Rfam assigns this 88-nucleotide RNA from Scaptodrosophila lebanonensis to the family "Selenocysteine transfer RNA".
The family is grouped with related families in Rfam's "tRNA clan".
NCBI's taxonomy places the organism under Eukaryota, Eumetazoa, Altocrustacea, Diptera, Scaptodrosophila.
It scores 63 bits against the family's covariance model.
RNA sequence: GCCUUUCUGAGCAAUGGUUGGUACUGUUGUGCGGACUUCAAAUCCGUAUACGAUUAAAAUCGUAGUGGUUCGAUUCCACCUGAGGGGC
Dot-bracket structure: (((((((.(..((((((......))))))((((((.......)))))).(((((....))))).((((.......))))).)))))))
Numbered sequence: 001g002c003c004u005u006u007c008u009g010a011g012c013a014a015u016g017g018u019u020g021g022u023a024c025u026g027u028u029g030u031g032c033g034g035a036c037u038u039c040a041a042a043u044c045c046g047u048a049u050a051c052g053a054u055u056a057a058a059a060u061c062g063u064a065g066u067g068g069u070u071c072g073a074u075u076c077c078a079c080c081u082g083a084g085g086g087g088c
Stems, first nucleotide, its partner, number of pairs: 001088007009080001012029006030048006050063005065079004
Gene Ontology term of the family: triplet codon-amino acid adaptor activity.